[Rfam]
Source information:
The record is a 128-nucleotide sequence from Anabarilius grahami, which matches "Small nucleolar RNA SNORA47" in Rfam. A reference for the family is Huttenhofer et al. (2001), "RNomics: an experimental approach that identifies 201 candidates for novel, small, non-messenger RNAs in mouse", EMBO J. It is annotated as an H/ACA-box small nucleolar RNA. Lineage of the source: Eukaryota > Deuterostomia > Gnathostomata > Cypriniformes > Anabarilius. Rfam links the family to the GO terms nucleolus and RNA processing.
RNA sequence: UGGAGGCUUGAGAAAGUUUUGCAGUUGAUUUAGUACUGCCUCAACUGGUUUUGUCCUCCAAGACUAAACCCAGAAUGCAGCCUCUCUUGUCUGAAUGUCUCUUUCAGACUGUAAGCUGUGUACAUGGA
Numbered sequence: 001u002g003g004a005g006g007c008u009u010g011a012g013a014a015a016g017u018u019u020u021g022c023a024g025u026u027g028a029u030u031u032a033g034u035a036c037u038g039c040c041u042c043a044a045c046u047g048g049u050u051u052u053g054u055c056c057u058c059c060a061a062g063a064c065u066a067a068a069c070c071c072a073g074a075a076u077g078c079a080g081c082c083u084c085u086c087u088u089g090u091c092u093g094a095a096u097g098u099c100u101c102u103u104u105c106a107g108a109c110u111g112u113a114a115g116c117u118g119u120g121u122a123c124a125u126g127g128a
Stems, first nucleotide, its partner, number of pairs: 002059005015046004021039005076120003080116002083113001089109005095104001